Shown here is a 61-nucleotide RNA sequence from Caldanaerobacter subterraneus, a member of the family "Fluoride riboswitch aptamer (crcB RNA motif)".
A search with the family's covariance model found it, with a score of 35 bits.
NCBI's taxonomy places the organism under Bacteria, Bacillati, Thermoanaerobacteraceae, Caldanaerobacter subterraneus, Caldanaerobacter subterraneus subsp. tengcongensis.
[Rfam]
RNA sequence: GAUUUAAAAAGCGAUGGGGCUCGCUUAAUGCAGAAGAAAUGCUGAUGGCUCCUACCUUUUU
Numbered sequence: 001g002a003u004u005u006a007a008a009a010a011g012c013g014a015u016g017g018g019g020c021u022c023g024c025u026u027a028a029u030g031c032a033g034a035a036g037a038a039a040u041g042c043u044g045a046u047g048g049c050u051c052c053u054a055c056c057u058u059u060u061u
Base pairs, nucleotide, nucleotide: 010025011024012023013022016052017051018050019049020048021047030042031041032040
Dot-bracket structure: .........[[[[..((((((]]]]....(((.......)))....)))))).........